[Rfam]
A member of the RNA family "S10-Clostridia ribosomal protein leader" from Shouchella lonarensis, 102 nucleotides long.
RNA sequence: UGGCAGCGUUGAUGCGAAAGGUUGCUGACACACCCGGACCCUUUGCCAUGGGCGGGUGAGGAAAUUUUCGCGGAGCAUGUCUAUUUUAAAAAUGGACGAUAA
Numbered sequence: 001u002g003g004c005a006g007c008g009u010u011g012a013u014g015c016g017a018a019a020g021g022u023u024g025c026u027g028a029c030a031c032a033c034c035c036g037g038a039c040c041c042u043u044u045g046c047c048a049u050g051g052g053c054g055g056g057u058g059a060g061g062a063a064a065u066u067u068u069c070g071c072g073g074a075g076c077a078u079g080u081c082u083a084u085u086u087u088a089a090a091a092a093u094g095g096a097c098g099a100u101a102a
Base pairs, nucleotide, nucleotide: 014071015070016069018068019067020066021065025060026059028057029056078101079100080099081098085096086095087094